[Rfam]
Notes
The family of this 87-nucleotide RNA sequence from Gossypium harknessii is "MIR7486 microRNA precursor family". A search with the family's covariance model found it, with a score of 74 bits. The organism belongs to Gossypium, within Eukaryota.

RNA sequence: CCUGAGGAAGCAUUUUGCCUACAUGGACAGAAAUCGCUCCCUCAAGGGCGCGCUUUAAGUCCAAGUAGGCAAAAUGCUUCCCCAGGG
Number, nucleotide and partner (000 for none) at each position: 001c086002c085003u084004g083005a000006g081007g080008a079009a078010g077011c076012a075013u074014u073015u072016u071017g070018c069019c068020u067021a066022c000023a000024u063025g062026g061027a060028c059029a000030g000031a056032a055033a054034u000035c052036g051037c050038u000039c000040c047041c046042u000043c000044a000045a000046g041047g040048g000049c000050g037051c036052g035053c000054u033055u032056u031057a000058a000059g028060u027061c026062c025063a024064a000065g000066u021067a020068g019069g018070c017071a016072a015073a014074a013075u012076g011077c010078u009079u008080c007081c006082c000083c004084a003085g002086g001087g000